[Rfam]
RNA: 6S / SsrS RNA
Organism: Shewanella amazonensis
Nucleotides: 181
Base pairs, nucleotide, nucleotide: 002179003178004177005176006175007174008173009172010171011170013168014167015166017165018164019163031152032151033150034149036147037146039144040143041142058128059127060126064122065121066120069118070117071116072115076112082106083105087102088101089100090099091098
Number, partner (000 for none) and nucleotide at each position: 001000u002179g003178c004177u005176c006175c007174c008173u009172g010171g011170g012000u013168u014167g015166u016000g017165c018164g019163c020000c021000a022000g023000c024000u025000g026000g027000u028000a029000a030000u031152g032151u033150c034149c035000c036147u037146g038000u039144g040143c041142c042000g043000a044000u045000a046000u047000u048000u049000u050000u051000g052000a053000c054000u055000u056000u057000a058128g059127g060126g061000c062000a063000g064122g065121u066120g067000u068000u069118u070117u071116a072115c073000c074000g075000a076112c077000a078000u079000u080000g081000a082106g083105c084000a085000g086000g087102c088101u089100c090099g091098g092000c093000u094000c095000g096000u097000a098091c099090c100089g101088a102087g103000a104000a105083g106082c107000c108000u109000u110000a111000g112076g113000a114000a115072g116071u117070a118069a119000u120066c121065g122064c123000a124000g125000g126060c127059c128058c129000g130000c131000c132000u133000u134000g135000a136000a137000c138000c139000u140000a141000c142041g143040g144039u145000u146037c147036a148000a149034g150033g151032g152031c153000u154000a155000c156000a157000c158000c159000g160000g161000c162000a163019g164018c165017g166015g167014c168013a169000u170011u171010c172009c173008g174007g175006g176005g177004a178003g179002c180000a181000u